[Rfam]
RNA sequence: GUUGAUGGGAAUGUUGUUUGGCUCGAGAUCAUCCAUGCCCCGGACGAAAGCCAUUGAUCAAAGCCAUGUGUGUAUAUAUAGCAUGGAUAGUGAGGGGAGCCUUUGUAUGAUCUCGGACCAGGCUUCAUUCCCGUCAGC
Numbered sequence: 001g002u003u004g005a006u007g008g009g010a011a012u013g014u015u016g017u018u019u020g021g022c023u024c025g026a027g028a029u030c031a032u033c034c035a036u037g038c039c040c041c042g043g044a045c046g047a048a049a050g051c052c053a054u055u056g057a058u059c060a061a062a063g064c065c066a067u068g069u070g071u072g073u074a075u076a077u078a079u080a081g082c083a084u085g086g087a088u089a090g091u092g093a094g095g096g097g098a099g100c101c102u103u104u105g106u107a108u109g110a111u112c113u114c115g116g117a118c119c120a121g122g123c124u125u126c127a128u129u130c131c132c133g134u135c136a137g138c
Base pairs, nucleotide, nucleotide: 001138002137003136004135005134006133007132008131009130010129011128012127013126016123017122018121019120020119021118024115025114026113027112028111029110030109031108032107
RNA: mir-166 microRNA precursor family
Organism: Punica granatum